[Rfam]
RNA: small nucleolar RNA snoR137
RNA sequence: UGUGCUUCACAACUGGAAGAAUGGUCUGUUGUUAACAGUUUGAUCAUCCUGUUGAGGGAAGCAUAGAUGAAUGGAAACACGGGCCAGCAUUAAACAGCAUGCCGCUUUAUCAAACUGCAUCUUGUUACCUGUCUUUUGGCACAUUU
Numbered sequence: 001u002g003u004g005c006u007u008c009a010c011a012a013c014u015g016g017a018a019g020a021a022u023g024g025u026c027u028g029u030u031g032u033u034a035a036c037a038g039u040u041u042g043a044u045c046a047u048c049c050u051g052u053u054g055a056g057g058g059a060a061g062c063a064u065a066g067a068u069g070a071a072u073g074g075a076a077a078c079a080c081g082g083g084c085c086a087g088c089a090u091u092a093a094a095c096a097g098c099a100u101g102c103c104g105c106u107u108u109a110u111c112a113a114a115c116u117g118c119a120u121c122u123u124g125u126u127a128c129c130u131g132u133c134u135u136u137u138g139g140c141a142c143a144u145u146u
Stems, first nucleotide, its partner, number of pairs: 003063006017050001019049001021047006083140005089134001096126003101121001104118001